[Rfam]
RNA: Acido-Lenti-1 RNA
RNA sequence: CCCAGCACUGACGUGCUGGGCUCUAUUCUUUCGCCCUGCGGGCU
Numbered sequence: 001c002c003c004a005g006c007a008c009u010g011a012c013g014u015g016c017u018g019g020g021c022u023c024u025a026u027u028c029u030u031u032c033g034c035c036c037u038g039c040g041g042g043c044u
Base pairs, nucleotide, nucleotide: 001020002019003018004017005016006015007014008013033043034042035041036040